[Rfam]
RNA sequence: CGAUCGAUGAUGACUCCCAUAAAUUCAUUCCUUGGAAAUCUGAACAAAAUGAGUGGGCAAUCCCUACAGUCUCCUCAUUGAAACUGAAGUCC
Number, nucleotide and partner (000 for none) at each position: 001c000002g091003a090004u089005c000006g000007a000008u000009g000010a000011u000012g000013a000014c000015u000016c000017c000018c000019a000020u000021a000022a000023a000024u000025u000026c055027a054028u053029u052030c051031c000032u047033u046034g045035g000036a000037a000038a000039u000040c000041u000042g000043a000044a000045c034046a033047a032048a000049a000050u000051g030052a029053g028054u027055g026056g000057g000058c000059a000060a000061u000062c000063c000064c000065u000066a000067c000068a000069g000070u000071c000072u000073c000074c000075u000076c000077a000078u000079u000080g000081a000082a000083a000084c000085u000086g000087a000088a000089g004090u003091c002092c000
RNA: Small nucleolar RNA SNORD116